A member of the RNA family "Makes More Granules Regulator RNA (mmgR)" from Methylopila jiangsuensis, 80 nucleotides long. Rfam links the family to the GO terms protein binding, DNA-templated transcription, termination and response to nitrogen compound. Pairs were carried over by alignment from the consensus structure. The family's RNA type in Rfam is small RNA.

RNA sequence: UGUCGCUGCCCUCCUUGGGCGUUUCCUCCCUAGACUUUGGCCGCCCUGCGCUUGCGCGGGCGGCCUUUUUUCUUCUUGCG
Numbered sequence: 001u002g003u004c005g006c007u008g009c010c011c012u013c014c015u016u017g018g019g020c021g022u023u024u025c026c027u028c029c030c031u032a033g034a035c036u037u038u039g040g041c042c043g044c045c046c047u048g049c050g051c052u053u054g055c056g057c058g059g060g061c062g063g064c065c066u067u068u069u070u071u072c073u074u075c076u077u078g079c080g
Stems, first nucleotide, its partner, number of pairs: 008020004039065008
From the family's description: SuhB later renamed mmgR (makes more granules regulator) was a putative non-coding RNA found multiple times in the Agrobacterium tumefaciens genome and related alpha-proteobacteria. Other non-coding RNAs uncovered in the same analysis include: speF, ybhL, metA, and serC.Several studies inSinorhizobium meliloti showed that suhB element is indeed a non-coding RNA:firstly it was detected on Northern blot and called Sm8RNA, secondly in an RNAseq study referred to as SmelC689.The mutant phenotype's (strain lacking the small RNA) cytoplasm contains higher content of polyhydroxybutyrate (PBH)storage granules than wild type strain.